The family of this 68-nucleotide RNA sequence from Halobacillus andaensis is "Bacillaceae-1 RNA".

[Rfam]
RNA sequence: GGUGACGCCUGGUCGAUUAAAACCGGCCACGUCCUGUGGCCAACAUCGACACUAACACGUCCGGUGCG
Numbered sequence: 001g002g003u004g005a006c007g008c009c010u011g012g013u014c015g016a017u018u019a020a021a022a023c024c025g026g027c028c029a030c031g032u033c034c035u036g037u038g039g040c041c042a043a044c045a046u047c048g049a050c051a052c053u054a055a056c057a058c059g060u061c062c063g064g065u066g067c068g
Stems, first nucleotide, its partner, number of pairs: 012050006026040005056066003
Taxonomically the source falls in Halobacillus (Bacteria, Bacillota, Caryophanales, Bacillaceae).
Pairs were carried over by alignment from the consensus structure, which is taken from published work.
A search with the family's covariance model found it, with a score of 40 bits.
By type it is a small RNA.